This 137-nucleotide RNA from Schinkia azotoformans belongs to the Rfam family "c-di-AMP riboswitch aptamer (ydaO/yuaA leader)". The base pairs follow the family's consensus structure.
RNA sequence: ACUUGAUAACAGCCUAAUCUCAUUCGUUGAGAACGGAGGAACCAUUAUUUUGGGGUUAAUUCUGCUUGCAGAAGGGAUGAUUACUCUUUCGCCAUCCUACCCGUCAGCUAACUUCGUCGGCUAAUGCGAAGGAGGUC
Numbered sequence: 001a002c003u004u005g006a007u008a009a010c011a012g013c014c015u016a017a018u019c020u021c022a023u024u025c026g027u028u029g030a031g032a033a034c035g036g037a038g039g040a041a042c043c044a045u046u047a048u049u050u051u052g053g054g055g056u057u058a059a060u061u062c063u064g065c066u067u068g069c070a071g072a073a074g075g076g077a078u079g080a081u082u083a084c085u086c087u088u089u090c091g092c093c094a095u096c097c098u099a100c101c102c103g104u105c106a107g108c109u110a111a112c113u114u115c116g117u118c119g120g121c122u123a124a125u126g127c128g129a130a131g132g133a134g135g136u137c
Stems, first nucleotide, its partner, number of pairs: 011122004018032003033117006043052002053102003061072004075097004